[Rfam]
Rfam assigns this 56-nucleotide sequence from Streptomyces lonarensis to the family "msiK RNA". The match comes from Rfam's covariance-model search (46 bits).

RNA sequence: GACGCUCGACCCCACUCGGAUCGUCCGGCACGUUCCUGCCGGUGAGGGAGUACAAA
Numbered sequence: 001g002a003c004g005c006u007c008g009a010c011c012c013c014a015c016u017c018g019g020a021u022c023g024u025c026c027g028g029c030a031c032g033u034u035c036c037u038g039c040c041g042g043u044g045a046g047g048g049a050g051u052a053c054a055a056a
Stems, first nucleotide, its partner, number of pairs: 010047002013044002025042006